[Rfam]
RNA sequence: CCAACGGCCCUUUUAAGGGCCACCACAUUUUCCUGAGAGCUAUAUGU
Numbered sequence: 001c002c003a004a005c006g007g008c009c010c011u012u013u014u015a016a017g018g019g020c021c022a023c024c025a026c027a028u029u030u031u032c033c034u035g036a037g038a039g040c041u042a043u044a045u046g047u
Base pairs, nucleotide, nucleotide: 006021007020008019009018010017011016